RNA sequence: GUGACAGAAGAGAGUGAGCACACAUGGUUGGUUUUCUUGCAUGAUUAAUUGUGUCCCCGUGCUUGAAGCUAUGCGUGCUCACUCUCUAUCUGUCAC
Dot-bracket structure: ((((((((.((((((((((((.(((((((.....................................))))))).))))))))))))..))))))))
Numbered sequence: 001g002u003g004a005c006a007g008a009a010g011a012g013a014g015u016g017a018g019c020a021c022a023c024a025u026g027g028u029u030g031g032u033u034u035u036c037u038u039g040c041a042u043g044a045u046u047a048a049u050u051g052u053g054u055c056c057c058c059g060u061g062c063u064u065g066a067a068g069c070u071a072u073g074c075g076u077g078c079u080c081a082c083u084c085u086c087u088a089u090c091u092g093u094c095a096c
Stems, first nucleotide, its partner, number of pairs: 001096008010086012023073007
The family of this 96-nucleotide RNA sequence from Coffea canephora is "mir-156 microRNA precursor family". This family represents the plant microRNA (miRNA) precursor mir-156. On this family, see Reinhart et al., Genes Dev 2002: "MicroRNAs in plants". Rfam 15.1 lists 1,401 matches to the family in 221 species. A search with the family's covariance model found it, with a score of 86 bits. The organism belongs to Coffea, within Eukaryota. Rfam links the family to the GO terms miRNA-mediated post-transcriptional gene silencing and RISC complex.